[Rfam]
Background: This 100-nucleotide RNA from Micropruina sp. belongs to the Rfam family "mraW RNA". The organism belongs to Micropruina, within Bacteria. The base pairs follow the family's consensus structure, which is taken from published work. It scores 64 bits against the family's covariance model.
RNA sequence: GCCGACUCGUGCGGUGCGGCUUCGAUCCGCCGGGCUCCUGGCGCACCUUCCCCGGUGCCAGGGGUGGCGGAUCGGAACCACAACGCACGAGCCGCGGGUU
Numbered sequence: 001g002c003c004g005a006c007u008c009g010u011g012c013g014g015u016g017c018g019g020c021u022u023c024g025a026u027c028c029g030c031c032g033g034g035c036u037c038c039u040g041g042c043g044c045a046c047c048u049u050c051c052c053c054g055g056u057g058c059c060a061g062g063g064g065u066g067g068c069g070g071a072u073c074g075g076a077a078c079c080a081c082a083a084c085g086c087a088c089g090a091g092c093c094g095c096g097g098g099u100u
Stems, first nucleotide, its partner, number of pairs: 010087004015082002018079002021076012035064010